[Rfam]
A member of the RNA family "FMN riboswitch aptamer (RFN element)" from Ensifer sp. M14, 150 nucleotides long. The organism belongs to Ensifer, within Bacteria. The base pairs follow the family's consensus structure, which is taken from published work.
RNA sequence: CCCUGUUCUCAGGGCGGGGUGAAACUCCCCACCGGCGGUAGCGAUCGAAAGGUCGAAGCCCGCGAGCGCUUCGAGGGCUUUCCUCGAGGGUCAGCAGAUCCGGUCAGAUUCCGGAGCCGACGGUCACAGUCCGGAUGGAAGAGAGCAAGC
Numbered sequence: 001c002c003c004u005g006u007u008c009u010c011a012g013g014g015c016g017g018g019g020u021g022a023a024a025c026u027c028c029c030c031a032c033c034g035g036c037g038g039u040a041g042c043g044a045u046c047g048a049a050a051g052g053u054c055g056a057a058g059c060c061c062g063c064g065a066g067c068g069c070u071u072c073g074a075g076g077g078c079u080u081u082c083c084u085c086g087a088g089g090g091u092c093a094g095c096a097g098a099u100c101c102g103g104u105c106a107g108a109u110u111c112c113g114g115a116g117c118c119g120a121c122g123g124u125c126a127c128a129g130u131c132c133g134g135a136u137g138g139a140a141g142a143g144a145g146c147a148a149g150c
Stems, first nucleotide, its partner, number of pairs: 004147007017029003031130002033119002035063004058117002066095002099115005121133003